Source information: Rfam assigns this 87-nucleotide RNA from Striga asiatica to the family "Small nucleolar RNA snoR26". Lineage of the source: Eukaryota > Streptophyta > Pentapetalae > Orobanchaceae > Striga. Rfam links the family to the GO terms nucleolus and RNA processing. The match comes from Rfam's covariance-model search (75 bits). The family's RNA type in Rfam is C/D-box small nucleolar RNA.
[Rfam]
RNA sequence: GGAGCAUCAGAGAUGAGAGCUAAUUAAAUCGUCAUCCUUGCACUUUGAUUGUCAGUGAAGAUAAAUAAUGUGGAAUCUGAGAUGCUC
Numbered sequence: 001g002g003a004g005c006a007u008c009a010g011a012g013a014u015g016a017g018a019g020c021u022a023a024u025u026a027a028a029u030c031g032u033c034a035u036c037c038u039u040g041c042a043c044u045u046u047g048a049u050u051g052u053c054a055g056u057g058a059a060g061a062u063a064a065a066u067a068a069u070g071u072g073g074a075a076u077c078u079g080a081g082a083u084g085c086u087c
Stems, first nucleotide, its partner, number of pairs: 002087007